[Rfam]
RNA: UnaL2 LINE 3' element
Organism: Labeo rohita
RNA sequence: AUUUAAGCCACUUGUAAGUCGCUUUGGAUAAAAGCGUCUGCUAAAUGAAUAAAU
Numbered sequence: 001a002u003u004u005a006a007g008c009c010a011c012u013u014g015u016a017a018g019u020c021g022c023u024u025u026g027g028a029u030a031a032a033a034g035c036g037u038c039u040g041c042u043a044a045a046u047g048a049a050u051a052a053a054u
Stems, first nucleotide, its partner, number of pairs: 013043001014041003020036006